[Rfam]
Shown here is a 134-nucleotide RNA from Spirodela intermedia, a member of the family "Small nucleolar RNA snoR74". Rfam classes the family as an H/ACA-box small nucleolar RNA. The match comes from Rfam's covariance-model search (73 bits). The family has 9 seed sequences and 1,404 matches in Rfam 15.1.
RNA sequence: CAAAAAGCAGGGGUGUGUUGAUCUGUGAGCACAUCCUUCGUAAAUCUCAGGUAAAUCGACGUGACAUCAUUAAUGGGUGAACCCUUGGAGGCGUCAACCCACUGACUCGCGGUUCAAUCAAUGAUGCGACAUCU
Numbered sequence: 001c002a003a004a005a006a007g008c009a010g011g012g013g014u015g016u017g018u019u020g021a022u023c024u025g026u027g028a029g030c031a032c033a034u035c036c037u038u039c040g041u042a043a044a045u046c047u048c049a050g051g052u053a054a055a056u057c058g059a060c061g062u063g064a065c066a067u068c069a070u071u072a073a074u075g076g077g078u079g080a081a082c083c084c085u086u087g088g089a090g091g092c093g094u095c096a097a098c099c100c101a102c103u104g105a106c107u108c109g110c111g112g113u114u115c116a117a118u119c120a121a122u123g124a125u126g127c128g129a130c131a132u133c134u
Base pairs, nucleotide, nucleotide: 005047007045011036012035014033015032016031017030065126066125067124068123069122070121071120078116079115080114081113082112083111